This 79-nucleotide RNA sequence belongs to the Rfam family "CyVA-1 RNA". From the family's description: Cyanobacteria, Acidobacteria (1 example), Verrucomicrobia (1 example). It is annotated as a small RNA. The sequence is in the family's curated seed alignment.

[Rfam]
RNA sequence: UUGCCUCUAUCAGCAGUUUUGCUGUUUGGGCUGAGAAUUUUCUUCCGAAGGAGAACGACGUCAGGAAGAAAAAGGGCAU
Numbered sequence: 001u002u003g004c005c006u007c008u009a010u011c012a013g014c015a016g017u018u019u020u021g022c023u024g025u026u027u028g029g030g031c032u033g034a035g036a037a038u039u040u041u042c043u044u045c046c047g048a049a050g051g052a053g054a055a056c057g058a059c060g061u062c063a064g065g066a067a068g069a070a071a072a073a074g075g076g077c078a079u
Stems, first nucleotide, its partner, number of pairs: 002078005010034004039071008